The family of this 77-nucleotide RNA sequence from Xiphophorus maculatus is "mir-219 microRNA precursor family".
The family's consensus secondary structure was predicted with RNAalifold.
The family has 92 seed sequences and 1,318 matches in Rfam 15.1.
NCBI's taxonomy places the organism under Eukaryota, Chordata, Craniata, Gnathostomata, Xiphophorus.
RNA sequence: CUGGUGUUGAUUGUCCAAACGCAAUUCUUGUACUGCUGCUCCAAAUCCAGGAGUUGUGGAUGGACGUCAUGCUCCCC
Numbered sequence: 001c002u003g004g005u006g007u008u009g010a011u012u013g014u015c016c017a018a019a020c021g022c023a024a025u026u027c028u029u030g031u032a033c034u035g036c037u038g039c040u041c042c043a044a045a046u047c048c049a050g051g052a053g054u055u056g057u058g059g060a061u062g063g064a065c066g067u068c069a070u071g072c073u074c075c076c077c
Base pairs, nucleotide, nucleotide: 003077004076006074008069009068010067011066013065014064015063016062017061020058021057022056023055024054025053026052027051028050029049030048